[Rfam]
The record is a 136-nucleotide sequence from Podilymbus podiceps, which matches "Small nucleolar RNA SNORA31" in Rfam. ACA31 (SNORA31) belongs to the H/ACA class of snoRNAs which are thought to guide the sites of modification of uridines to pseudouridines. ACA31 is predicted to guide the pseudouridylation of U3713 in 28S rRNA and U218 in 18S rRNA. This family includes the mouse homologue snoMBI-161. Pairs were carried over by alignment from the consensus structure, which was predicted with RNAalifold. The family's RNA type in Rfam is H/ACA-box small nucleolar RNA. Lineage of the source: Eukaryota > Bilateria > Teleostomi > Podicipedidae > Podilymbus. The literature on the family includes a 2001 paper in EMBO J by Huttenhofer et al., "RNomics: an experimental approach that identifies 201 candidates for novel, small, non-messenger RNAs in mouse".
RNA sequence: AUGCAUCUAUUUGACAGACCUGGAGCAAACAGCCGUUGCUUCUCUGGUUCUUGCUGAGAUGCGACAGUGACGGGUUCCUUGCGCUUUCUGCCUGCCGGCCCUCGUGGCAGCCCAGAUUGAAUAAAGGAGCACAAAC
Numbered sequence: 001a002u003g004c005a006u007c008u009a010u011u012u013g014a015c016a017g018a019c020c021u022g023g024a025g026c027a028a029a030c031a032g033c034c035g036u037u038g039c040u041u042c043u044c045u046g047g048u049u050c051u052u053g054c055u056g057a058g059a060u061g062c063g064a065c066a067g068u069g070a071c072g073g074g075u076u077c078c079u080u081g082c083g084c085u086u087u088c089u090g091c092c093u094g095c096c097g098g099c100c101c102u103c104g105u106g107g108c109a110g111c112c113c114a115g116a117u118u119g120a121a122u123a124a125a126g127g128a129g130c131a132c133a134a135a136c
Stems, first nucleotide, its partner, number of pairs: 002063007012053002017049004023041006076128005084119001087116004092110005